[Rfam]
RNA sequence: CCCAGCGCGAUGCGCUGGGCUAACAUCUUGUGCUCUUUCAGAGCU
Numbered sequence: 001c002c003c004a005g006c007g008c009g010a011u012g013c014g015c016u017g018g019g020c021u022a023a024c025a026u027c028u029u030g031u032g033c034u035c036u037u038u039c040a041g042a043g044c045u
Stems, first nucleotide, its partner, number of pairs: 001019008032044005

This 45-nucleotide RNA sequence from Hoylesella marshii belongs to the Rfam family "Acido-Lenti-1 RNA".
The family has 87 seed sequences and 2,607 matches in Rfam 15.1.
It is annotated as a small RNA.
Lineage of the source: Bacteria > Pseudomonadati > Bacteroidia > Hoylesella > Hoylesella marshii.